[Rfam]
RNA sequence: UCGCGUGUUCCGGGGUCGGUGCAAGUCCGAACCGGCGGUGACAGUCCGCGACCCGCACCUCUCGGGGUGAGGUUGAACCGGUGGAACUCCGGUACCGACGGUGAAAGUCCGGAUGAGAGGAAACACGC
Numbered sequence: 001u002c003g004c005g006u007g008u009u010c011c012g013g014g015g016u017c018g019g020u021g022c023a024a025g026u027c028c029g030a031a032c033c034g035g036c037g038g039u040g041a042c043a044g045u046c047c048g049c050g051a052c053c054c055g056c057a058c059c060u061c062u063c064g065g066g067g068u069g070a071g072g073u074u075g076a077a078c079c080g081g082u083g084g085a086a087c088u089c090c091g092g093u094a095c096c097g098a099c100g101g102u103g104a105a106a107g108u109c110c111g112g113a114u115g116a117g118a119g120g121a122a123a124c125a126c127g128c
Stems, first nucleotide, its partner, number of pairs: 003126001005124002008121003017029003031108002033097002035049004044095002053072002077093005099111003

Record summary: This 128-nucleotide RNA from Aeromicrobium erythreum belongs to the Rfam family "FMN riboswitch aptamer (RFN element)". Pairs were carried over by alignment from the consensus structure, which is taken from published work. The source organism's lineage runs through Bacteria, Bacillati, Actinomycetes, Propionibacteriales and Aeromicrobium.